RNA sequence: CUGAUAUCCUGAUGAUUCAACAAUCAAUGCAUAGUUCAUCUGAGGCUGUGGCCUAUGAAUGAAACAAAUUUAGCAAUGUCUUUCGCUCCUAUCUGAAAUAUUUC
Number, nucleotide and partner (000 for none) at each position: 001c000002u000003g000004a101005u100006a099007u098008c000009c000010u000011g000012a000013u000014g000015a000016u000017u000018c000019a000020a000021c000022a000023a000024u000025c000026a000027a000028u000029g000030c000031a000032u000033a000034g000035u000036u000037c000038a000039u000040c000041u000042g000043a000044g000045g000046c000047u000048g000049u000050g000051g000052c000053c000054u000055a000056u000057g000058a000059a000060u000061g000062a000063a000064a000065c000066a000067a000068a000069u000070u000071u000072a000073g000074c000075a000076a000077u000078g000079u000080c000081u000082u000083u000084c000085g000086c000087u000088c000089c000090u000091a000092u000093c000094u000095g000096a000097a000098a007099u006100a005101u004102u000103u000104c000